[Rfam]
RNA sequence: GGUCAUGAGUUCCAGCGCGAAGCUCCGGCUCGCUGGGCGGCAACCCUCCUCCGCGGUGGGGUGCUCCGGAUGAGGACCUGGCCCUCCCGAUCGGGACGGCAAGUGCGGAGU
Numbered sequence: 001g002g003u004c005a006u007g008a009g010u011u012c013c014a015g016c017g018c019g020a021a022g023c024u025c026c027g028g029c030u031c032g033c034u035g036g037g038c039g040g041c042a043a044c045c046c047u048c049c050u051c052c053g054c055g056g057u058g059g060g061g062u063g064c065u066c067c068g069g070a071u072g073a074g075g076a077c078c079u080g081g082c083c084c085u086c087c088c089g090a091u092c093g094g095g096a097c098g099g100c101a102a103g104u105g106c107g108g109a110g111u
Stems, first nucleotide, its partner, number of pairs: 001078004009038001011037006021030002039065003044061003048056002081100003085096004

This 111-nucleotide sequence from Nakamurella alba belongs to the Rfam family "SAM (S-adenosyl methionine) riboswitch aptamer". Its family is annotated with regulation of gene expression and S-adenosylmethionine metabolic process in the Gene Ontology. The match comes from Rfam's covariance-model search (102 bits).